[Rfam]
RNA sequence: UUGUGUGUGAGGAGCAAGUUAAAACGAAAAACAUCUGGGGUGGAAACACGGCAACACUCCCGGGUGUUUUUUGUU
Numbered sequence: 001u002u003g004u005g006u007g008u009g010a011g012g013a014g015c016a017a018g019u020u021a022a023a024a025c026g027a028a029a030a031a032c033a034u035c036u037g038g039g040g041u042g043g044a045a046a047c048a049c050g051g052c053a054a055c056a057c058u059c060c061c062g063g064g065u066g067u068u069u070u071u072u073g074u075u
Stems, first nucleotide, its partner, number of pairs: 028070005035063005040057003
A member of the RNA family "Cyano-1 RNA" from Nostoc sp. T09, 75 nucleotides long. The match comes from Rfam's covariance-model search (57 bits). Lineage of the source: Bacteria > Cyanobacteriota > Cyanophyceae > Nostocales > Nostoc. The family has 265 seed sequences and 283 matches in Rfam 15.1. It is annotated as a small RNA.